Record summary
Shown here is a 286-nucleotide sequence from Sciurus vulgaris, a member of the family "Mason-Pfizer monkey virus packaging signal".

RNA sequence: UGGCGCCCAAUGGUGUGGCGUUGGAUACGGGGCAAUUAUCGAGGGAAGAGGCAUCUAAGUGUUCGGUCGAAGGAAAAAAAAAAGUGAAAGUCAGUUCGACAAAGAUCGCCGCAGGAGCCUGCCACGCCAUUCUUAAAGGUACAGUAGCACCUAACUAUGGGACAAGAAUUAAGUAAGCAUAAAGUUUUUGUUAAGCAAUUAAAAGAAGCUUUAAAGACACGGGGAGUAAAGGUUAAGAGUAAUGAUGUUUUUAAGUUUUUUGACCUUAAUAAGGGCAUAUGUCUGU
Numbered sequence: 001u002g003g004c005g006c007c008c009a010a011u012g013g014u015g016u017g018g019c020g021u022u023g024g025a026u027a028c029g030g031g032g033c034a035a036u037u038a039u040c041g042a043g044g045g046a047a048g049a050g051g052c053a054u055c056u057a058a059g060u061g062u063u064c065g066g067u068c069g070a071a072g073g074a075a076a077a078a079a080a081a082a083a084g085u086g087a088a089a090g091u092c093a094g095u096u097c098g099a100c101a102a103a104g105a106u107c108g109c110c111g112c113a114g115g116a117g118c119c120u121g122c123c124a125c126g127c128c129a130u131u132c133u134u135a136a137a138g139g140u141a142c143a144g145u146a147g148c149a150c151c152u153a154a155c156u157a158u159g160g161g162a163c164a165a166g167a168a169u170u171a172a173g174u175a176a177g178c179a180u181a182a183a184g185u186u187u188u189u190g191u192u193a194a195g196c197a198a199u200u201a202a203a204a205g206a207a208g209c210u211u212u213a214a215a216g217a218c219a220c221g222g223g224g225a226g227u228a229a230a231g232g233u234u235a236a237g238a239g240u241a242a243u244g245a246u247g248u249u250u251u252u253a254a255g256u257u258u259u260u261u262g263a264c265c266u267u268a269a270u271a272a273g274g275g276c277a278u279a280u281g282u283c284u285g286u
Base pairs, nucleotide, nucleotide: 006032007031008030015028016027017026037051039049040048091139092138095136096135104132105130106129110126111125114122145165147163150161151160152159153158170213171212172211173209174208220262221261222260223259224258225257226256227255230248232246233245234244235243271286273284274283275282276281
Description
Rfam links the family to the GO term viral genome packaging. The family's consensus secondary structure was predicted with PFOLD. The family's RNA type in Rfam is cis-regulatory element. The literature on the family includes a 1995 paper in J Virol by Harrison et al., "Secondary structure model of the Mason-Pfizer monkey virus 5' leader sequence: identification of a structural motif common to a variety of retroviruses". A search with the family's covariance model found it, with a score of 151 bits.